RNA sequence: AACUAGGUUUGUGGGAACAAAGAGAAUGAAAUCUAUUCUAUACCCGAUAAGUAGCAAUACGCAAUGGGG
Numbered sequence: 001a002a003c004u005a006g007g008u009u010u011g012u013g014g015g016a017a018c019a020a021a022g023a024g025a026a027u028g029a030a031a032u033c034u035a036u037u038c039u040a041u042a043c044c045c046g047a048u049a050a051g052u053a054g055c056a057a058u059a060c061g062c063a064a065u066g067g068g069g
Stems, first nucleotide, its partner, number of pairs: 003022002007018004043068003051060003
Background
Rfam assigns this 69-nucleotide RNA from Beta vulgaris to the family "Plastid-clpP 5UTR RNA". A search with the family's covariance model found it, with a score of 80 bits. The literature on the family includes a 2023 paper in Plant Commun by Richter et al., "Retrograde signaling in plants: A critical review focusing on the GUN pathway and beyond". Pairs were carried over by alignment from the consensus structure, which was predicted with LocARNA. About the family: Plastid clpP is a non-coding RNA (ncRNA) recognised in plastids. It was found in the prime untranslated region (5UTR) of a protease complex subunit (clpP) in plastids, suggesting a posible cis-regulatory function. Rfam classes the family as a cis-regulatory element.